RNA: glmS glucosamine-6-phosphate activated ribozyme aptamer
Organism: Sulfobacillus sp. hq2
RNA sequence: CUAUGCCCGUGAGCGCCAGGACCUUUUGCCAUAAGGCAGAAGGUUGACGAGGUGAGGGAUCUCGAAUUUCUCGGCGGGUGACCUCCGGCUCCCCGGCAGUCGUCAAAUCACGAACAAAGGCUAUCCGCAAGGAUAGCACAAACACGUGUGGCCGGGAC
Numbered sequence: 001c002u003a004u005g006c007c008c009g010u011g012a013g014c015g016c017c018a019g020g021a022c023c024u025u026u027u028g029c030c031a032u033a034a035g036g037c038a039g040a041a042g043g044u045u046g047a048c049g050a051g052g053u054g055a056g057g058g059a060u061c062u063c064g065a066a067u068u069u070c071u072c073g074g075c076g077g078g079u080g081a082c083c084u085c086c087g088g089c090u091c092c093c094c095g096g097c098a099g100u101c102g103u104c105a106a107a108u109c110a111c112g113a114a115c116a117a118a119g120g121c122u123a124u125c126c127g128c129a130a131g132g133a134u135a136g137c138a139c140a141a142a143c144a145c146g147u148g149u150g151g152c153c154g155g156g157a158c
Stems, first nucleotide, its partner, number of pairs: 020045008029036001054085004062074004086102005109148004120137007